[Rfam]
A member of the RNA family "Purine riboswitch aptamer" from Neobacillus mesonae, 102 nucleotides long. The match comes from Rfam's covariance-model search (88 bits). NCBI's taxonomy places the organism under Bacteria, Bacillati, Bacilli, Caryophanales, Neobacillus.
RNA sequence: GAAAAUACUGUCGAAUUACGUCGUAUAAUAUUGGGGAUAAGGCCCAAAAGUUUCUACCAAGUCACCGUAAAUGGCUUGACUACGAGGUAAGUGUGAAUAAAA
Numbered sequence: 001g002a003a004a005a006u007a008c009u010g011u012c013g014a015a016u017u018a019c020g021u022c023g024u025a026u027a028a029u030a031u032u033g034g035g036g037a038u039a040a041g042g043c044c045c046a047a048a049a050g051u052u053u054c055u056a057c058c059a060a061g062u063c064a065c066c067g068u069a070a071a072u073g074g075c076u077u078g079a080c081u082a083c084g085a086g087g088u089a090a091g092u093g094u095g096a097a098u099a100a101a102a
Base pairs, nucleotide, nucleotide: 018088019087021085022084023083024082025081029049031047032046033045034044035043058078059077060076061075062074063073064072